Plastid-psbA-1 3UTR RNA: a 118-nucleotide RNA from Dipsacus japonicus.
From the family's description: Plastid psbA-1 is a non-coding RNA (ncRNA) present in plastids.
RNA sequence: UGAAUCCAAAAAUGGAUGAUUACUCUUUCACGAAAAUAGAUCAAAACAAUACUGUUAAAUAAAAAGGGAGCAAUAAUCCCCCUCUUGUUCUAUCAAGAGGGGGAUUAUUGCUCCCUUU
Numbered sequence: 001u002g003a004a005u006c007c008a009a010a011a012a013u014g015g016a017u018g019a020u021u022a023c024u025c026u027u028u029c030a031c032g033a034a035a036a037u038a039g040a041u042c043a044a045a046a047c048a049a050u051a052c053u054g055u056u057a058a059a060u061a062a063a064a065a066g067g068g069a070g071c072a073a074u075a076a077u078c079c080c081c082c083u084c085u086u087g088u089u090c091u092a093u094c095a096a097g098a099g100g101g102g103g104a105u106u107a108u109u110g111c112u113c114c115c116u117u118u
Stems, first nucleotide, its partner, number of pairs: 001016001004013002064117013078103003082099005

It is one of the family's seed sequences. By type it is a cis-regulatory element. The literature on the family includes a 2023 paper in Plant Commun by Richter et al., "Retrograde signaling in plants: A critical review focusing on the GUN pathway and beyond".